Record summary: Shown here is a 137-nucleotide sequence from Methylomusa anaerophila, a member of the family "c-di-AMP riboswitch aptamer (ydaO/yuaA leader)". A search with the family's covariance model found it, with a score of 87 bits. Lineage of the source: Bacteria > Bacillati > Negativicutes > Selenomonadales > Methylomusa.

RNA sequence: GCGUUUAAAAAGCCGAAUCCAGCUCAGGUACGGGGGAACCAAAGUUUGGGGUGAAACUUGCGAUUUUAGCAAUCGCGCGUAGGGUGCCUGCAACCCUAACCCGUCAGCUAACCUCGGAGGCAGCGAGAGGAGAAGAU
Numbered sequence: 001g002c003g004u005u006u007a008a009a010a011a012g013c014c015g016a017a018u019c020c021a022g023c024u025c026a027g028g029u030a031c032g033g034g035g036g037a038a039c040c041a042a043a044g045u046u047u048g049g050g051g052u053g054a055a056a057c058u059u060g061c062g063a064u065u066u067u068a069g070c071a072a073u074c075g076c077g078c079g080u081a082g083g084g085u086g087c088c089u090g091c092a093a094c095c096c097u098a099a100c101c102c103g104u105c106a107g108c109u110a111a112c113c114u115c116g117g118a119g120g121c122a123g124c125g126a127g128a129g130g131a132g133a134a135g136a137u
Base pairs, nucleotide, nucleotide: 012121013120014119019028020027031116032115033114034113035112040048041047049102050101051100057079059077060076061075062074063073082096083095084094085093
Dot-bracket structure: ...........(((....((......))..(((((....((.....))(((.....(.(((((.........))))).)..((((.......))))...))).........)))))..)))................